[Rfam]
RNA: Small nucleolar RNA snR191
RNA sequence: UGCCAUCGCUAAGUCAAGGCUGCUCCUACGGCUUCAUGCUGUGUUAUUCACUAUGGGAGAUGGUCUGUUACAGCUAUGGCAGAUUGACGCUGGUCCGCGCCGACCUUCUUUCUGAAGCAAGGCUGAUUGGUUUCCGUUUUGGAGGCCGAUCGUAAGGACCGAGCUGUGUUCUGUUUUUGAGUUGAGUCCUGCCUCCGCUUUUUUAAGUGGCAUCAUAGCAGGUCUCUUAGUAACAUUUCACACAUCC
Numbered sequence: 001u002g003c004c005a006u007c008g009c010u011a012a013g014u015c016a017a018g019g020c021u022g023c024u025c026c027u028a029c030g031g032c033u034u035c036a037u038g039c040u041g042u043g044u045u046a047u048u049c050a051c052u053a054u055g056g057g058a059g060a061u062g063g064u065c066u067g068u069u070a071c072a073g074c075u076a077u078g079g080c081a082g083a084u085u086g087a088c089g090c091u092g093g094u095c096c097g098c099g100c101c102g103a104c105c106u107u108c109u110u111u112c113u114g115a116a117g118c119a120a121g122g123c124u125g126a127u128u129g130g131u132u133u134c135c136g137u138u139u140u141g142g143a144g145g146c147c148g149a150u151c152g153u154a155a156g157g158a159c160c161g162a163g164c165u166g167u168g169u170u171c172u173g174u175u176u177u178u179g180a181g182u183u184g185a186g187u188c189c190u191g192c193c194u195c196c197g198c199u200u201u202u203u204u205a206a207g208u209g210g211c212a213u214c215a216u217a218g219c220a221g222g223u224c225u226c227u228u229a230g231u232a233a234c235a236u237u238u239c240a241c242a243c244a245u246c247c
Stems, first nucleotide, its partner, number of pairs: 003079004017066006023059004028042005090166001092164001094162002099123003105117004125151012168241002173236002176233001184226003195210004200205001